[Rfam]
RNA sequence: CGACCCUGCACGGGAGAGUCUUCGCCGCCCUCGGGCGACGGAGCGCCGAAGGGGCAACACUCCCCGGAACCUCUCAGGCGCCAGGACCGUGCGGUCGAG
Numbered sequence: 001c002g003a004c005c006c007u008g009c010a011c012g013g014g015a016g017a018g019u020c021u022u023c024g025c026c027g028c029c030c031u032c033g034g035g036c037g038a039c040g041g042a043g044c045g046c047c048g049a050a051g052g053g054g055c056a057a058c059a060c061u062c063c064c065c066g067g068a069a070c071c072u073c074u075c076a077g078g079c080g081c082c083a084g085g086a087c088c089g090u091g092c093g094g095u096c097g098a099g
Stems, first nucleotide, its partner, number of pairs: 006094008020043004045079003048075002052073003058066001
Shown here is a 99-nucleotide sequence, a member of the family "Glycine riboswitch aptamer". The pairing is the family consensus, mapped onto this sequence.